[Rfam]
RNA sequence: GUUGGUUAUGGUGAUAUAUAUCCAAAAUCGAUGUGGGGUAAAUUAAUUGGUUCAGUUUGUUGUGUUUGUGGUGUACUUGUUAUUGCUUUACCAAUACCAAUUAUUGUUAAUAAU
Dot-bracket structure: ((.(...((((.(((...(((...............((((........(.............)..........))))................)))...))).))))...).))
RNA: Potassium channel RNA editing signal
Organism: Rotaria sp. Silwood1